Ribosomal protein L20 leader: a 120-nucleotide sequence from Alkalicoccus urumqiensis.
A search with the family's covariance model found it, with a score of 71 bits.
The organism belongs to Alkalicoccus, within Bacteria.
Rfam links the family to the GO term regulation of gene expression.
[Rfam]
RNA sequence: CAAAGCAAGAAGAAGCGCCCGCUUCUCACCUGUUUCGUUAUUGUACGUUCAGGUUAUGAUUUUUUCACCAGAUUCAACGGAUGAAGUGUGGGCGCAAUGCGCCUGCACUUUUUUAUUGAU
Numbered sequence: 001c002a003a004a005g006c007a008a009g010a011a012g013a014a015g016c017g018c019c020c021g022c023u024u025c026u027c028a029c030c031u032g033u034u035u036c037g038u039u040a041u042u043g044u045a046c047g048u049u050c051a052g053g054u055u056a057u058g059a060u061u062u063u064u065u066c067a068c069c070a071g072a073u074u075c076a077a078c079g080g081a082u083g084a085a086g087u088g089u090g091g092g093c094g095c096a097a098u099g100c101g102c103c104u105g106c107a108c109u110u111u112u113u114u115a116u117u118g119a120u
Base pairs, nucleotide, nucleotide: 011026012025013024014023015022016021028054029053030052036047037046038045087107088106089105090104091103092102093101094100095099